[Rfam]
RNA sequence: ACCUUAUGAUGAUGAUGAAAUGGUUAAGGAUGUGGGUUUCUCUAGUUUAACGGCUGAAGAGGACCUUAAUUGGUCCUAGAACGGCCUGAGGUAGAGGGGUUUUAGUCGGUAGGUCCGAGGACUUCUUCCUCGGGAAUCCGACACUACCCAGUCGUACGGACGGUUGGGUGUCUUUUGAAGAUUUCCUCUCUUCCACGAAA
Numbered sequence: 001a002c003c004u005u006a007u008g009a010u011g012a013u014g015a016u017g018a019a020a021u022g023g024u025u026a027a028g029g030a031u032g033u034g035g036g037u038u039u040c041u042c043u044a045g046u047u048u049a050a051c052g053g054c055u056g057a058a059g060a061g062g063a064c065c066u067u068a069a070u071u072g073g074u075c076c077u078a079g080a081a082c083g084g085c086c087u088g089a090g091g092u093a094g095a096g097g098g099g100u101u102u103u104a105g106u107c108g109g110u111a112g113g114u115c116c117g118a119g120g121a122c123u124u125c126u127u128c129c130u131c132g133g134g135a136a137u138c139c140g141a142c143a144c145u146a147c148c149c150a151g152u153c154g155u156a157c158g159g160a161c162g163g164u165u166g167g168g169u170g171u172c173u174u175u176u177g178a179a180g181a182u183u184u185c186c187u188c189u190c191u192u193c194c195a196c197g198a199a200a
Stems, first nucleotide, its partner, number of pairs: 070199002073196002090194002093191002096187003105142005114134008144170001146169005
This 200-nucleotide RNA sequence from Agrilus planipennis belongs to the Rfam family "R2 RNA element". It scores 48 bits against the family's covariance model. On this family, see Ruschak et al., RNA 2004: "Secondary structure models of the 3' untranslated regions of diverse R2 RNAs". Rfam's curators write: This family represents the 3' UTR region of the R2 retrotransposable element. This family is known to interact with the R2-encoded reverse transcriptase in a reaction known as target primed reverse transcription (TPRT). The family's consensus secondary structure is taken from published work. Lineage of the source: Eukaryota > Arthropoda > Pancrustacea > Neoptera > Agrilus. Rfam classes the family as a cis-regulatory element. Rfam links the family to the GO term regulation of reverse transcription.